[Rfam]
RNA: Glycine riboswitch aptamer
Organism: Sphingorhabdus wooponensis
RNA sequence: GCUGACGAAGCGGGAGAGCGUUCCAUAAAGGGACCGCCGAAGGAGCAACCGCCCCGGAAUCUCUCAGGCAAAAGGACCGCUUCGGCUUU
Numbered sequence: 001g002c003u004g005a006c007g008a009a010g011c012g013g014g015a016g017a018g019c020g021u022u023c024c025a026u027a028a029a030g031g032g033a034c035c036g037c038c039g040a041a042g043g044a045g046c047a048a049c050c051g052c053c054c055c056g057g058a059a060u061c062u063c064u065c066a067g068g069c070a071a072a073a074g075g076a077c078c079g080c081u082u083c084g085g086c087u088u089u
Base pairs, nucleotide, nucleotide: 006084007083008082009081010080011079012078013077020034021033022032023031036069037068038067039065040064043063044062045061049057050056